[Rfam]
RNA sequence: AAAAUGGUGGUUCGCAAACAUCCCACCGUAAUAAAAAACUAGAAAGAA
Dot-bracket structure: .....(((((.....[......)))))............]........
Numbered sequence: 001a002a003a004a005u006g007g008u009g010g011u012u013c014g015c016a017a018a019c020a021u022c023c024c025a026c027c028g029u030a031a032u033a034a035a036a037a038a039c040u041a042g043a044a045a046g047a048a
Stems, first nucleotide, its partner, number of pairs: 006027005016040001
The record is a 48-nucleotide sequence from Liquorilactobacillus oeni, which matches "PreQ1 (pre queuosine) riboswitch aptamer" in Rfam. A search with the family's covariance model found it, with a score of 43 bits. Rfam's curators write: This family is a bacterial riboswitch that binds to the metabolite preQ1, an intermediate in the biosynthesis of the modified nucleoside queuosine from GTP. One example of this riboswitch is located in the leader of the Bacillus subtilis ykvJKLM (queCDEF) operon which encodes four genes necessary for queuosine production.